[Rfam]
RNA sequence: AAAAAUCGGGUCUGUGGUUGCAAGCCGAUGCCAGUCGCAGGCGAAGCGGUCCACGUAAGCCGGGAAAAUCCCGGUGAGCAUGGUGCGGUCUAGAGGUAAGCCCGGCCGCGCGGAAAGCGCGAGAGAACGGCGUGAGGGCGCGAAGGCGCAGAGCAAAGUUCCAGCCGGCGAGUGUGGGGUCAAAGACCAGGUCAGCCGACGUUU
Numbered sequence: 001a002a003a004a005a006u007c008g009g010g011u012c013u014g015u016g017g018u019u020g021c022a023a024g025c026c027g028a029u030g031c032c033a034g035u036c037g038c039a040g041g042c043g044a045a046g047c048g049g050u051c052c053a054c055g056u057a058a059g060c061c062g063g064g065a066a067a068a069u070c071c072c073g074g075u076g077a078g079c080a081u082g083g084u085g086c087g088g089u090c091u092a093g094a095g096g097u098a099a100g101c102c103c104g105g106c107c108g109c110g111c112g113g114a115a116a117g118c119g120c121g122a123g124a125g126a127a128c129g130g131c132g133u134g135a136g137g138g139c140g141c142g143a144a145g146g147c148g149c150a151g152a153g154c155a156a157a158g159u160u161c162c163a164g165c166c167g168g169c170g171a172g173u174g175u176g177g178g179g180u181c182a183a184a185g186a187c188c189a190g191g192u193c194a195g196c197c198g199a200c201g202u203u204u
Base pairs, nucleotide, nucleotide: 002204003203004202006199007198008197009196012195013194014193015189016188017187018186019185028175029174030173031041034089035088036087037086038085039084050083051082058075060073062071063070081182102168103167104166105165106164107121108120109119110118111117125161126160127159128158132154133153139148140147141146
raiA RNA: a 204-nucleotide RNA sequence. By type it is a riboswitch.